Plastid-psbN 5UTR RNA: a 61-nucleotide RNA sequence from Vitis rotundifolia. Plastid psbN is a non-coding RNA (ncRNA) recognised in plastids. It was reported as a conserved 11 stem-loop in the prime untranslated region (5UTR) of psbN genes. It has been reported that the motif is retained in a subset of mature transcripts in barley, which can suggests a possible role in transcript alternative 5 prime processing. Taxonomically the source falls in Vitis (Eukaryota, Euphyllophyta, Mesangiospermae, Viteae).
[Rfam]
RNA sequence: UGUAACACCCAUUAAAGCAGUAGUUCCCCAUUGGGGGUCUACUAUAUUAUAUUUCGAAUUC
Numbered sequence: 001u002g003u004a005a006c007a008c009c010c011a012u013u014a015a016a017g018c019a020g021u022a023g024u025u026c027c028c029c030a031u032u033g034g035g036g037g038u039c040u041a042c043u044a045u046a047u048u049a050u051a052u053u054u055c056g057a058a059u060u061c
Stems, first nucleotide, its partner, number of pairs: 017045001019043005025037003